[Rfam]
Nucleotides: 111
Base pairs, nucleotide, nucleotide: 010098011097012096013095014094015093016092018090019089021087022086023085024084027081028080029079030078033075034074035073036070038068039067041066042065043064044063046061047060048059
Number, partner (000 for none) and nucleotide at each position: 001000g002000c003000c004000g005000a006000u007000c008000g009000g010098u011097g012096c013095a014094g015093c016092u017000g018090g019089g020000u021087c022086u023085c024084c025000a026000g027081c028080c029079g030078c031000u032000c033075u034074g035073c036070u037000a038068g039067u040000g041066c042065c043064u044063g045000a046061c047060c048059u049000c050000a051000c052000u053000u054000c055000c056000c057000c058000g059048a060047g061046g062000c063044c064043a065042g066041g067039a068038c069000g070036a071000a072000c073035g074034c075033a076000c077000u078030g079029c080028g081027g082000a083000g084024g085023g086022g087021g088000a089019c090018c091000c092016a093015g094014u095013u096012g097011c098010a099000u100000c101000g102000a103000a104000a105000g106000c107000c108000u109000c110000u111000u
This 111-nucleotide sequence from Neomicrococcus aestuarii belongs to the Rfam family "mraW RNA". The base pairs follow the family's consensus structure, which is taken from published work. The match comes from Rfam's covariance-model search (57 bits). The organism belongs to Neomicrococcus, within Bacteria.